[Rfam]
RNA sequence: ACGGUCUAUUAACGUUCCUUGCUUCCAUGGGCCGCAGCUGACCCUGACAGGAGGCUGAAUAAUCCGUAAGGAGCAAAUCGAUG
Number, nucleotide and partner (000 for none) at each position: 001a000002c000003g000004g000005u000006c000007u000008a000009u000010u000011a000012a000013c000014g074015u073016u072017c071018c070019u069020u068021g055022c054023u053024u052025c051026c050027a000028u000029g044030g043031g042032c000033c000034g000035c000036a000037g000038c000039u000040g000041a000042c031043c030044c029045u000046g000047a000048c000049a000050g026051g025052a024053g023054g022055c021056u000057g000058a000059a000060u000061a000062a000063u000064c000065c000066g000067u000068a020069a019070g018071g017072a016073g015074c014075a000076a000077a000078u000079c000080g000081a000082u000083g000
RNA: RpsF leader
Organism: Enterobacterales bacterium CwR94